[Rfam]
Rfam assigns this 214-nucleotide RNA from Pandoraea oxalativorans to the family "permuted transfer-messenger RNA". Rfam classes the family as a non-coding RNA gene. About the family: Bacterial tmRNA, also known as 10Sa RNA or SsrA, is named for its dual tRNA and mRNA-like properties.

RNA sequence: UGCUGUAAUUCCUUCAACGUGAAGGCGUUCUGGACGCGGGUUCGACUCCCGCCACCUCCACCCGAGGGCGUUUGUCGGUGAAGCGUUCUGGGGUGGGGGUGCCUUGGGUUCGACAGGGCGAGCUAGCGAAGACGGCAGCAGGAGAGGUGCCCGACCUAAUCGGCACAACACCGUAACUGGCAAAAACGACGCCUUUUACUACGAAGCGGCCUAA
Numbered sequence: 001u002g003c004u005g006u007a008a009u010u011c012c013u014u015c016a017a018c019g020u021g022a023a024g025g026c027g028u029u030c031u032g033g034a035c036g037c038g039g040g041u042u043c044g045a046c047u048c049c050c051g052c053c054a055c056c057u058c059c060a061c062c063c064g065a066g067g068g069c070g071u072u073u074g075u076c077g078g079u080g081a082a083g084c085g086u087u088c089u090g091g092g093g094u095g096g097g098g099g100u101g102c103c104u105u106g107g108g109u110u111c112g113a114c115a116g117g118g119c120g121a122g123c124u125a126g127c128g129a130a131g132a133c134g135g136c137a138g139c140a141g142g143a144g145a146g147g148u149g150c151c152c153g154a155c156c157u158a159a160u161c162g163g164c165a166c167a168a169c170a171c172c173g174u175a176a177c178u179g180g181c182a183a184a185a186a187c188g189a190c191g192c193c194u195u196u197u198a199c200u201a202c203g204a205a206g207c208g209g210c211c212u213a214a
Base pairs, nucleotide, nucleotide: 001140002139003138004137005136014130026120027119028118030116031115032114036052037051038050039049040048053101054100055099056098057097058096059095060094061093062092063091141156142155